Rfam assigns this 217-nucleotide sequence from Perkinsus marinus to the family "RNase MRP". It scores 83 bits against the family's covariance model. By type it is a ribozyme. Its family is annotated with ribonuclease MRP activity, ribonuclease MRP complex and rRNA processing in the Gene Ontology. A reference for the family is Rosenblad et al. (2006), "Inventory and analysis of the protein subunits of the ribonucleases P and MRP provides further evidence of homology between the yeast and human enzymes", Nucleic Acids Res.

RNA sequence: AACGGCACGGAAAGCACGGCUUUGGGGAAUCUCUUGAGCACUGCGUCUCUUCACCCCAGGGAAAGUCCUCGUGCGAGUAGUAGAAAGUACUGCCAGUAGACUGGUUACCCCUGGUCAUACUACUCUCGUGUGACCGGGGUUGUUGCAGCAGCAAAGUUAUGCCGUGGGUUGUGCUUCUGCACAACUAACAGAAUGAGGCUUACUCUUCCGCUGUCGU
Numbered sequence: 001a002a003c004g005g006c007a008c009g010g011a012a013a014g015c016a017c018g019g020c021u022u023u024g025g026g027g028a029a030u031c032u033c034u035u036g037a038g039c040a041c042u043g044c045g046u047c048u049c050u051u052c053a054c055c056c057c058a059g060g061g062a063a064a065g066u067c068c069u070c071g072u073g074c075g076a077g078u079a080g081u082a083g084a085a086a087g088u089a090c091u092g093c094c095a096g097u098a099g100a101c102u103g104g105u106u107a108c109c110c111c112u113g114g115u116c117a118u119a120c121u122a123c124u125c126u127c128g129u130g131u132g133a134c135c136g137g138g139g140u141u142g143u144u145g146c147a148g149c150a151g152c153a154a155a156g157u158u159a160u161g162c163c164g165u166g167g168g169u170u171g172u173g174c175u176u177c178u179g180c181a182c183a184a185c186u187a188a189c190a191g192a193a194u195g196a197g198g199c200u201u202a203c204u205c206u207u208c209c210g211c212u213g214u215c216g217u
Stems, first nucleotide, its partner, number of pairs: 002217005008210005015166006022059006063201003067198004079091004092105005108139003113135007168185006